[Rfam]
RNA: permuted transfer-messenger RNA
RNA sequence: AGUUGUAUGAUAUAGAAGGAAAAGCGCUGUGGACGCGGGUUCGAUUCCCGCCUGGUCCACCAAAAGCAUUCUGAUGUAGGUCUUGGUCGUUACCCGCGAGAUGCGAAAACGGCGUCCCAGAGUGUUUCUGAUGGGCCAGUCAUGGUUUCGACAUGGUGAAGAGUACUGAAGUGGACAACUCGCUAGGCGAAGAGCGUAAUUCUAGCAAAUCAAAUAAACGCAAAUGACGAGGUCUUUGCCUUAGCUGCUUAA
Numbered sequence: 001a002g003u004u005g006u007a008u009g010a011u012a013u014a015g016a017a018g019g020a021a022a023a024g025c026g027c028u029g030u031g032g033a034c035g036c037g038g039g040u041u042c043g044a045u046u047c048c049c050g051c052c053u054g055g056u057c058c059a060c061c062a063a064a065a066g067c068a069u070u071c072u073g074a075u076g077u078a079g080g081u082c083u084u085g086g087u088c089g090u091u092a093c094c095c096g097c098g099a100g101a102u103g104c105g106a107a108a109a110c111g112g113c114g115u116c117c118c119a120g121a122g123u124g125u126u127u128c129u130g131a132u133g134g135g136c137c138a139g140u141c142a143u144g145g146u147u148u149c150g151a152c153a154u155g156g157u158g159a160a161g162a163g164u165a166c167u168g169a170a171g172u173g174g175a176c177a178a179c180u181c182g183c184u185a186g187g188c189g190a191a192g193a194g195c196g197u198a199a200u201u202c203u204a205g206c207a208a209a210u211c212a213a214a215u216a217a218a219c220g221c222a223a224a225u226g227a228c229g230a231g232g233u234c235u236u237u238g239c240c241u242u243a244g245c246u247g248c249u250u251a252a
Stems, first nucleotide, its partner, number of pairs: 001180005013170001016167001025158003029154003035051005052139007181196004